[Rfam]
Nucleotides: 141
Stems, first nucleotide, its partner, number of pairs: 001139019020119005028112015044096003050090005
Number, partner (000 for none) and nucleotide at each position: 001139u002138u003137g004136a005135g006134u007133u008132a009131g010130c011129c012128a013127c014126a015125u016124a017123a018122u019121a020119a021118u022117g023116u024115u025000u026000a027000u028112c029111u030110c031109c032108u033107u034106u035105a036104g037103u038102u039101a040100u041099a042098u043000a044096c045095a046094u047000c048000g049000a050090c051089c052088u053087c054086a055000a056000g057000u058000a059000g060000a061000a062000u063000u064000u065000g066000c067000c068000u069000u070000g071000g072000a073000u074000u075000u076000u077000a078000c079000g080000a081000c082000u083000u084000a085000u086054u087053g088052a089051g090050g091000c092000g093000c094046a095045u096044g097000c098042g099041u100040a101039u102038a103037a104036u105035u106034a107033a108032a109031g110030g111029a112028g113000a114000u115024g116023a117022c118021a119020u120000a121019u122018a123017u124016u125015a126014u127013g128012u129011g130010g131009u132008u133007a134006a135005c136004u137003u138002a139001a140000c141000u
Rfam assigns this 141-nucleotide sequence from Anisodus acutangulus to the family "MIR7993 microRNA precursor family".
Its family is annotated with miRNA-mediated post-transcriptional gene silencing and RISC complex in the Gene Ontology.
The family has 4 seed sequences and 59 matches in Rfam 15.1.
The match comes from Rfam's covariance-model search (101 bits).